[Rfam]
RNA sequence: CCAAAAUUAGCCACUUGUUAUUUUCUAAUUGGUUUUAGAAAAAAAUUUAACACACUAAGAACCAAUUAGAAAAUGACAAGUGGCUAGUUUUGA
Numbered sequence: 001c002c003a004a005a006a007u008u009a010g011c012c013a014c015u016u017g018u019u020a021u022u023u024u025c026u027a028a029u030u031g032g033u034u035u036u037a038g039a040a041a042a043a044a045a046u047u048u049a050a051c052a053c054a055c056u057a058a059g060a061a062c063c064a065a066u067u068a069g070a071a072a073a074u075g076a077c078a079a080g081u082g083g084c085u086a087g088u089u090u091u092g093a
Stems, first nucleotide, its partner, number of pairs: 002092033035058004
Overview
A member of the RNA family "MIR6288 microRNA precursor family" from Prunus avium, 93 nucleotides long. Gene Ontology terms of the family: RISC complex and miRNA-mediated post-transcriptional gene silencing. The source organism's lineage runs through Eukaryota, Embryophyta, Euphyllophyta, Rosales and Prunus. A search with the family's covariance model found it, with a score of 76 bits.